[Rfam]
RNA sequence: AGUCGUCUAAUGACGGCCACCAAUGGUCCGAGAGCUUGAGAGGACCGCCUUCGGGUAGCUGAAAAAACACUCCUGCAGCCUGAAAGGGAGAACACAUCAGUGUGGUACAUCUGCUCACUCCUGGAAGCAGAUAUCGUCAACAAUGCGCAC
Dot-bracket structure: .((((((....)))))).......(((((...[[[[.....)))))(((....)))]]]].........((((.[.[.[[......)))).(((......)))]]].].(((((............)))))...................

Notes:
The record is a 150-nucleotide RNA from Erwinia billingiae, which matches "STAXI RNA" in Rfam. Rfam 15.1 lists 130 matches to the family in 68 species.